[Rfam]
The family of this 197-nucleotide sequence from Oleispira antarctica is "Group II catalytic intron D1-D4-3". The organism belongs to Oleispira antarctica, within Bacteria. Its family is annotated with Group II intron splicing in the Gene Ontology. The pairing is the family consensus, mapped onto this sequence. A search with the family's covariance model found it, with a score of 113 bits. For this family Rfam cites "The ins and outs of group II introns" (Bonen and Vogel, Trends Genet, 2001).
RNA sequence: UUAACUGCGAAGUUGGGUCUGGAGGGCGUAGCGCCGUGAAUACCUACAACGGCUGGGAUGGCGCUAGCAAAACUGCGAGCUGAUGAACAAAAACAUCAUAUGAGGCGUAGGCUGGAGGCGAGUUGGCACAAGACGACGAAGCCAUGUGAUCUAACGGCCACCGUAAAUGAUGCAGUUGCGCAGGGAAAGUUCAUGUC
Numbered sequence: 001u002u003a004a005c006u007g008c009g010a011a012g013u014u015g016g017g018u019c020u021g022g023a024g025g026g027c028g029u030a031g032c033g034c035c036g037u038g039a040a041u042a043c044c045u046a047c048a049a050c051g052g053c054u055g056g057g058a059u060g061g062c063g064c065u066a067g068c069a070a071a072a073c074u075g076c077g078a079g080c081u082g083a084u085g086a087a088c089a090a091a092a093a094c095a096u097c098a099u100a101u102g103a104g105g106c107g108u109a110g111g112c113u114g115g116a117g118g119c120g121a122g123u124u125g126g127c128a129c130a131a132g133a134c135g136a137c138g139a140a141g142c143c144a145u146g147u148g149a150u151c152u153a154a155c156g157g158c159c160a161c162c163g164u165a166a167a168u169g170a171u172g173c174a175g176u177u178g179c180g181c182a183g184g185g186a187a188a189g190u191u192c193a194u195g196u197c
Base pairs, nucleotide, nucleotide: 001016002015003014004013005012006011060197061196062195063194067190068189073183074182075181076180077179078177079176080175081174082173094172095171096170097169098168099167105164106163107162110159111158112157113156114155117143118142119141122137123136124135125134